[Rfam]
Nucleotides: 145
Stems, first nucleotide, its partner, number of pairs: 079103003086096003107132003116123002
Number, partner (000 for none) and nucleotide at each position: 001000u002000c003000a004000c005000c006000a007000g008000c009000c010000a011000g012000a013000a014000g015000c016000u017000c018000u019000u020000c021000a022000g023000a024000g025000c026000c027000u028000c029000u030000u031000u032000u033000c034000g035000a036000g037000c038000u039000c040000u041000c042000g043000c044000g045000u046000c047000a048000c049000c050000a051000c052000c053000a054000a055000c056000a057000c058000a059000a060000c061000u062000c063000c064000a065000c066000c067000a068000a069000g070000a071000u072000g073000u074000c075000g076000c077000c078000c079103u080102g081101c082000a083000a084000c085000u086096g087095c088094a089000a090000c091000u092000g093000c094088u095087g096086c097000u098000c099000u100000g101081g102080c103079a104000g105000c106000u107132g108131u109130g110000g111000c112000u113000c114000c115000u116123g117122c118000u119000c120000c121000u122117g123116c124000u125000c126000u127000c128000a129000g130109u131108g132107c133000a134000g135000c136000g137000u138000a139000a140000g141000u142000u143000g144000c145000c
A. fumigatus sRNA Afu_254: a 145-nucleotide RNA sequence from Rasamsonia emersonii. A search with the family's covariance model found it, with a score of 61 bits. Pairs were carried over by alignment from the consensus structure, which was predicted with WAR. On this family, see Jochl et al., Nucleic Acids Res 2008: "Small ncRNA transcriptome analysis from Aspergillus fumigatus suggests a novel mechanism for regulation of protein synthesis". Rfam classes the family as a small RNA.